[Rfam]
RNA sequence: GCCGAGCCUGGUAGCGUGGGCUUGUGAUCCAAGUGGAGGCAUUAAGGUGGUGGAACGUUGAUCUCGUCCAGAAGGCUGAGUCUAGCCUGACGAAUAUCAGGCCUGCCCGUUCCAAGCCAAGAACUGAGCCAUGUGACCCUAGCGAAGGCCUGGGUUACUUGUCUCCUAAAGUGGGGGGCAAUGCGUGAGGCUGGGUUCACAGAGCAGCGACAACCUCCCGCUCCUGGCAGUGGAAGGAUAACAGGCUGUUGUCACCUAGACUCAUAUGGUCUAAUGGGCUGAUAAAACUGGACCAUCACUUUU
Numbered sequence: 001g002c003c004g005a006g007c008c009u010g011g012u013a014g015c016g017u018g019g020g021c022u023u024g025u026g027a028u029c030c031a032a033g034u035g036g037a038g039g040c041a042u043u044a045a046g047g048u049g050g051u052g053g054a055a056c057g058u059u060g061a062u063c064u065c066g067u068c069c070a071g072a073a074g075g076c077u078g079a080g081u082c083u084a085g086c087c088u089g090a091c092g093a094a095u096a097u098c099a100g101g102c103c104u105g106c107c108c109g110u111u112c113c114a115a116g117c118c119a120a121g122a123a124c125u126g127a128g129c130c131a132u133g134u135g136a137c138c139c140u141a142g143c144g145a146a147g148g149c150c151u152g153g154g155u156u157a158c159u160u161g162u163c164u165c166c167u168a169a170a171g172u173g174g175g176g177g178g179c180a181a182u183g184c185g186u187g188a189g190g191c192u193g194g195g196u197u198c199a200c201a202g203a204g205c206a207g208c209g210a211c212a213a214c215c216u217c218c219c220g221c222u223c224c225u226g227g228c229a230g231u232g233g234a235a236g237g238a239u240a241a242c243a244g245g246c247u248g249u250u251g252u253c254a255c256c257u258a259g260a261c262u263c264a265u266a267u268g269g270u271c272u273a274a275u276g277g278g279c280u281g282a283u284a285a286a287a288c289u290g291g292a293c294c295a296u297c298a299c300u301u302u303u
Stems, first nucleotide, its partner, number of pairs: 001040003004023007028037003044302010056290002058287002061283003068277003073272005078263008088254003093250001100247006107237002110235005116228004121223002124220001126165003130161002133158007142149002166171001173218005184209003191202003
Shown here is a 303-nucleotide RNA from Populus tomentosa, a member of the family "Plant signal recognition particle RNA". The organism belongs to Populus, within Eukaryota. The literature on the family includes a 2003 paper in Nucleic Acids Res by Rosenblad et al., "SRPDB: Signal Recognition Particle Database". Pairs were carried over by alignment from the consensus structure, which is taken from published work.